[Rfam]
RNA sequence: GCCUUCGAGGAUGAUCAGAACAAUAACUUUCGUUCUUCCGAGUUGCCCAUGCGGAAAAUUAUUGGAGACCUGAACUGAGGAAGGC
Numbered sequence: 001g002c003c004u005u006c007g008a009g010g011a012u013g014a015u016c017a018g019a020a021c022a023a024u025a026a027c028u029u030u031c032g033u034u035c036u037u038c039c040g041a042g043u044u045g046c047c048c049a050u051g052c053g054g055a056a057a058a059u060u061a062u063u064g065g066a067g068a069c070c071u072g073a074a075c076u077g078a079g080g081a082a083g084g085c
Stems, first nucleotide, its partner, number of pairs: 003083004
Shown here is an 85-nucleotide RNA from Lupinus albus, a member of the family "Small nucleolar RNA Z159/U59". The family's RNA type in Rfam is C/D-box small nucleolar RNA. Pairs were carried over by alignment from the consensus structure, which was predicted with PFOLD. The family is grouped with related families in Rfam's "SNORD59 clan". Rfam 15.1 lists 1,401 matches to the family in 272 species. Taxonomically the source falls in Lupinus (Eukaryota, Streptophyta, Euphyllophyta, Magnoliopsida). For this family Rfam cites "The high diversity of snoRNAs in plants: identification and comparative study of 120 snoRNA genes from Oryza sativa" (Chen et al., Nucleic Acids Res, 2003).